[Rfam]
RNA sequence: UGAUGACAAAUUCUCCGGAAUCUCUGUACUACUUUGAUGAUUUCAUUUGAACCUAUUAUCUGAUGACUGCCAGAUCUUAUU
Numbered sequence: 001u002g003a004u005g006a007c008a009a010a011u012u013c014u015c016c017g018g019a020a021u022c023u024c025u026g027u028a029c030u031a032c033u034u035u036g037a038u039g040a041u042u043u044c045a046u047u048u049g050a051a052c053c054u055a056u057u058a059u060c061u062g063a064u065g066a067c068u069g070c071c072a073g074a075u076c077u078u079a080u081u
Stems, first nucleotide, its partner, number of pairs: 002081005
RNA: Small nucleolar RNA MBII-202